[Rfam]
RNA sequence: AGCAUCCUUUUCUUGGGAUUGUGUUACUGUCUGAAGAGUAUAUGGUGAGGGCCGUAUUGUUAAUGCCUACACAACAUGCCUGCAUAAACUAGAGCUUUACUUUACCUUGGCACAAUUUUUGAAUAA
Numbered sequence: 001a002g003c004a005u006c007c008u009u010u011u012c013u014u015g016g017g018a019u020u021g022u023g024u025u026a027c028u029g030u031c032u033g034a035a036g037a038g039u040a041u042a043u044g045g046u047g048a049g050g051g052c053c054g055u056a057u058u059g060u061u062a063a064u065g066c067c068u069a070c071a072c073a074a075c076a077u078g079c080c081u082g083c084a085u086a087a088a089c090u091a092g093a094g095c096u097u098u099a100c101u102u103u104a105c106c107u108u109g110g111c112a113c114a115a116u117u118u119u120u121g122a123a124u125a126a
Stems, first nucleotide, its partner, number of pairs: 007017003021060003026055002029052004038046002082113001085110001087108001090104005

This 126-nucleotide sequence from Otolemur garnettii belongs to the Rfam family "U4atac minor spliceosomal RNA". Clan: U4 clan. It scores 55 bits against the family's covariance model. U4atac is an essential component of the minor U12-type spliceosome complex which is required for removal of the rarer class of eukaryotic introns (AT-AC, U12-type). The family's consensus secondary structure is taken from published work.